The record is a 148-nucleotide RNA sequence from Fulvimarina pelagi, which matches "Alphaproteobacterial sRNA ar45" in Rfam. The organism belongs to Fulvimarina pelagi, within Bacteria. The sequence is in the family's curated seed alignment. A reference for the family is del Val et al. (2012), "A survey of sRNA families in alpha-proteobacteria", RNA Biol.
[Rfam]
Nucleotides: 148
Base pairs, nucleotide, nucleotide: 001144002143003142004141008135009134010133011132016130017129018128023124024123025122026121027120028119029118030117031062032061033060034059035058037052038051039050040049070088071087072086073085089116090115091114092113095109096108097107098106099105
Number, partner (000 for none) and nucleotide at each position: 001144g002143c003142c004141c005000a006000a007000u008135g009134u010133c011132g012000c013000a014000c015000g016130u017129g018128c019000c020000g021000a022000u023124g024123g025122g026121c027120g028119u029118c030117c031062c032061c033060c034059g035058g036000u037052c038051c039050u040049c041000a042000c043000g044000a045000u046000a047000g048000c049040g050039a051038g052037g053000a054000u055000g056000a057000a058035c059034c060033g061032g062031g063000a064000c065000g066000g067000u068000a069000c070088c071087u072086g073085g074000a075000c076000g077000u078000a079000a080000c081000a082000c083000a084000c085073c086072c087071a088070g089116u090115c091114g092113g093000u094000u095109u096108c097107g098106c099105g100000a101000g102000c103000c104000g105099c106098g107097c108096g109095a110000c111000a112000a113092c114091c115090g116089a117030g118029g119028a120027c121026g122025c123024u124023u125000g126000a127000a128018g129017c130016a131000a132011c133010g134009a135008c136000g137000g138000u139000u140000c141004g142003g143002g144001c145000c146000u147000u148000u